[Rfam]
RNA sequence: GAGCAGGAAAGUUAUAAUACAGCUGUGCAGUGCUGUAUUAUCGUUCCCCCUGCUUAAAGAAAAAUGUUUCCAUCUAUCCCUACCUGCUUCGACCCCAUAGUAGGUAGGGACGCUAGGUUUCAUAC
Dot-bracket structure: ..(((((......((((((((((........)))))))))).......))))).........................((((.((((............)))).)))).................
Numbered sequence: 001g002a003g004c005a006g007g008a009a010a011g012u013u014a015u016a017a018u019a020c021a022g023c024u025g026u027g028c029a030g031u032g033c034u035g036u037a038u039u040a041u042c043g044u045u046c047c048c049c050c051u052g053c054u055u056a057a058a059g060a061a062a063a064a065u066g067u068u069u070c071c072a073u074c075u076a077u078c079c080c081u082a083c084c085u086g087c088u089u090c091g092a093c094c095c096c097a098u099a100g101u102a103g104g105u106a107g108g109g110a111c112g113c114u115a116g117g118u119u120u121c122a123u124a125c
Stems, first nucleotide, its partner, number of pairs: 003053005014041010079108004084103004
The family of this 125-nucleotide sequence from Semnornis frantzii is "Small nucleolar RNA SNORA63". The family's consensus secondary structure was predicted with PFOLD. For this family Rfam cites "Three small nucleolar RNAs that are involved in ribosomal RNA precursor processing" (Mishra and Eliceiri, Proc Natl Acad Sci U S A, 1997). Rfam's curators write: E3 belongs to the H/ACA class of snoRNAs and is involved in the processing of eukaryotic pre-rRNA and has regions of complementarity to 18S rRNA. E3 is encoded in introns in the gene for protein synthesis initiation factor 4AII. The match comes from Rfam's covariance-model search (111 bits).